[Rfam]
This 182-nucleotide RNA sequence from Ferrimonas aestuarii belongs to the Rfam family "6S / SsrS RNA".
Rfam classes the family as a non-coding RNA gene.
The family's consensus secondary structure is taken from published work.
RNA sequence: UGCUCCCUGAGAUGUUCGCCAGUAGGUUAUGUCCCUGGCCGAUGCUAAAGAUCCAAGGGAUUGUUGCUCACUGCUAUUGCGCAUGCUUGGCACGUACCAAGAAGCCUACGGUAGAGACAGCAGUUCCGCCCUGAACCUACGGUUCACGGGCUUACACCUGCAACGGCAUCUUCGGGGAGCGC
Numbered sequence: 001u002g003c004u005c006c007c008u009g010a011g012a013u014g015u016u017c018g019c020c021a022g023u024a025g026g027u028u029a030u031g032u033c034c035c036u037g038g039c040c041g042a043u044g045c046u047a048a049a050g051a052u053c054c055a056a057g058g059g060a061u062u063g064u065u066g067c068u069c070a071c072u073g074c075u076a077u078u079g080c081g082c083a084u085g086c087u088u089g090g091c092a093c094g095u096a097c098c099a100a101g102a103a104g105c106c107u108a109c110g111g112u113a114g115a116g117a118c119a120g121c122a123g124u125u126c127c128g129c130c131c132u133g134a135a136c137c138u139a140c141g142g143u144u145c146a147c148g149g150g151c152u153u154a155c156a157c158c159u160g161c162a163a164c165g166g167c168a169u170c171u172u173c174g175g176g177g178a179g180c181g182c
Stems, first nucleotide, its partner, number of pairs: 002180010012169004017165002031151004036146003039142002057127003061123006068117002071114005081105002086101005
Record summary: It scores 111 bits against the family's covariance model. On this family, see Wassarman and Storz, Cell 2000: "6S RNA regulates E. coli RNA polymerase activity". NCBI's taxonomy places the organism under Bacteria, Pseudomonadota, Alteromonadales, Ferrimonadaceae, Ferrimonas.